[Rfam]
RNA: SL2 RNA
Organism: Caenorhabditis remanei
RNA sequence: GGUUUUAACCCAGUUACUCAAGGUUCGCUGGGGUUCCGACUAUUCGAAAGAAUGUGUUGAACAAAAACAUAACUUUUGGAACCGCUCUGCUGGGGUUUUCCGGUAGAGCAAA
Numbered sequence: 001g002g003u004u005u006u007a008a009c010c011c012a013g014u015u016a017c018u019c020a021a022g023g024u025u026c027g028c029u030g031g032g033g034u035u036c037c038g039a040c041u042a043u044u045c046g047a048a049a050g051a052a053u054g055u056g057u058u059g060a061a062c063a064a065a066a067a068c069a070u071a072a073c074u075u076u077u078g079g080a081a082c083c084g085c086u087c088u089g090c091u092g093g094g095g096u097u098u099u100c101c102g103g104u105a106g107a108g109c110a111a112a
Stems, first nucleotide, its partner, number of pairs: 007035002009031002013028002016025001018023001037059004041054005086110001088108001090106003094101002